[Rfam]
RNA sequence: AAAGCCCUGCCAGUAGUCAUAAUAGAAGUGUUUACAUUAUAGCACCAGUCAGAUUCCUAUAAAUCUGUAAAUUCUGCA
Dot-bracket structure: ............[..[[.....((((((((.......))).]]..]...((((((......))))))....)))))..
Numbered sequence: 001a002a003a004g005c006c007c008u009g010c011c012a013g014u015a016g017u018c019a020u021a022a023u024a025g026a027a028g029u030g031u032u033u034a035c036a037u038u039a040u041a042g043c044a045c046c047a048g049u050c051a052g053a054u055u056c057c058u059a060u061a062a063a064u065c066u067g068u069a070a071a072u073u074c075u076g077c078a
Stems, first nucleotide, its partner, number of pairs: 013046001016043002023076005028040003050067006

Shown here is a 78-nucleotide RNA from Microcaecilia unicolor, a member of the family "Mammalian CPEB3 ribozyme".
A search with the family's covariance model found it, with a score of 40 bits.
From the family's description: The mammalian CPEB3 ribozyme is a self cleaving RNA located in the second intron of the CPEB3 gene which belongs to a family of genes regulating messenger RNA polyadenylation. This ribozyme is highly conserved and found only in mammals. The CPEB3 ribozyme is structurally and biochemically related to the human hepatitis delta virus (HDV) ribozyme and the HDV ribozyme is proposed to have arisen from the human transcriptome.
Its family is annotated with RNA nuclease activity in the Gene Ontology.
The family's consensus secondary structure is taken from published work.
NCBI's taxonomy places the organism under Eukaryota, Eumetazoa, Chordata, Craniata, Microcaecilia.